The family of this 75-nucleotide RNA sequence from Hibiscus syriacus is "Small nucleolar RNA R21".
A search with the family's covariance model found it, with a score of 49 bits.
The family has 6 seed sequences and 472 matches in Rfam 15.1.
The source organism's lineage runs through Eukaryota, Euphyllophyta, Magnoliopsida, Malvoideae and Hibiscus.
The base pairs follow the family's consensus structure, which was predicted with PFOLD.
[Rfam]
RNA sequence: CAUCCCAAUGAUGAUCGAUAUGGAUUGUUAGAAGUAGUGCAUGAUCGGUUGAUGAUAAAUACAUGCUGAAGGAUG
Numbered sequence: 001c002a003u004c005c006c007a008a009u010g011a012u013g014a015u016c017g018a019u020a021u022g023g024a025u026u027g028u029u030a031g032a033a034g035u036a037g038u039g040c041a042u043g044a045u046c047g048g049u050u051g052a053u054g055a056u057a058a059a060u061a062c063a064u065g066c067u068g069a070a071g072g073a074u075g
Base pairs, nucleotide, nucleotide: 001075002074003073004072005071
For this family Rfam cites "Identification of 66 box C/D snoRNAs in Arabidopsis thaliana: extensive gene duplications generated multiple isoforms predicting new ribosomal RNA 2'-O-methylation sites" (Barneche et al., J Mol Biol, 2001).